Annotation: A member of the RNA family "Purine riboswitch aptamer" from Clostridium sp. 7_2_43FAA, 102 nucleotides long. The family's consensus secondary structure is taken from published work. A search with the family's covariance model found it, with a score of 85 bits. Gene Ontology term of the family: purine nucleobase biosynthetic process.

RNA sequence: AAAAAAUAAACAUAUAGUAUUCGUAUAUGCUUGAAGAUAUGGUUCAAGUGUUUCUACUAGGAAACCGUAAAUAUCCUAACUACGAAGAUUCGAUUAUUGCCA
Numbered sequence: 001a002a003a004a005a006a007u008a009a010a011c012a013u014a015u016a017g018u019a020u021u022c023g024u025a026u027a028u029g030c031u032u033g034a035a036g037a038u039a040u041g042g043u044u045c046a047a048g049u050g051u052u053u054c055u056a057c058u059a060g061g062a063a064a065c066c067g068u069a070a071a072u073a074u075c076c077u078a079a080c081u082a083c084g085a086a087g088a089u090u091c092g093a094u095u096a097u098u099g100c101c102a
Stems, first nucleotide, its partner, number of pairs: 018088001020086006029049007058078005064072001